[Rfam]
skipping-rope RNA: a 79-nucleotide RNA sequence. The family's consensus secondary structure is taken from published work. The family's RNA type in Rfam is small RNA.
RNA sequence: AAUAUUUGAAGUAGAGAUUGUGCUGCUACGCACCUUCGGGUCAAAAGAAAUGUGGGACGGGGCACACCCACCAAAUAUU
Numbered sequence: 001a002a003u004a005u006u007u008g009a010a011g012u013a014g015a016g017a018u019u020g021u022g023c024u025g026c027u028a029c030g031c032a033c034c035u036u037c038g039g040g041u042c043a044a045a046a047g048a049a050a051u052g053u054g055g056g057a058c059g060g061g062g063c064a065c066a067c068c069c070a071c072c073a074a075a076u077a078u079u
Stems, first nucleotide, its partner, number of pairs: 001079008011029004020065005031047001032041003052071005